[Rfam]
Source information
Small nucleolar RNA U6-53/MBII-28: a 103-nucleotide RNA sequence from Callithrix jacchus. Rfam 15.1 lists 780 matches to the family in 403 species. Pairs were carried over by alignment from the consensus structure. Lineage of the source: Eukaryota > Chordata > Vertebrata > Theria > Callithrix. For this family Rfam cites "RNomics: an experimental approach that identifies 201 candidates for novel, small, non-messenger RNAs in mouse" (Huttenhofer et al., EMBO J, 2001).
RNA sequence: CCCCUGUGAUGAGCUGUCAUACUAAUACAGAGACACCAGUUAGGGAUUUUACCCUGCAUUGGGUGUUGUUGAAAUAAACUCUUUCUCGUAAAUCCCGAGGGGC
Numbered sequence: 001c002c003c004c005u006g007u008g009a010u011g012a013g014c015u016g017u018c019a020u021a022c023u024a025a026u027a028c029a030g031a032g033a034c035a036c037c038a039g040u041u042a043g044g045g046a047u048u049u050u051a052c053c054c055u056g057c058a059u060u061g062g063g064u065g066u067u068g069u070u071g072a073a074a075u076a077a078a079c080u081c082u083u084u085c086u087c088g089u090a091a092a093u094c095c096c097g098a099g100g101g102g103c
Stems, first nucleotide, its partner, number of pairs: 001102004041056005